The record is a 38-nucleotide RNA sequence from Herpetosiphon aurantiacus, which matches "CRISPR RNA direct repeat element" in Rfam. Rfam links the family to the GO term defense response. It is one of the family's seed sequences. The organism belongs to Herpetosiphon aurantiacus, within Bacteria.

RNA sequence: AUUCAAAUAACCAAAAUCCUCGGAAGGGGAUUAAAACG
Number, nucleotide and partner (000 for none) at each position: 001a000002u000003u000004c000005a000006a000007a000008u000009a000010a000011c000012c000013a000014a000015a032016a031017u030018c029019c028020u027021c026022g000023g000024a000025a000026g021027g020028g019029g018030a017031u016032u015033a000034a000035a000036a000037c000038g000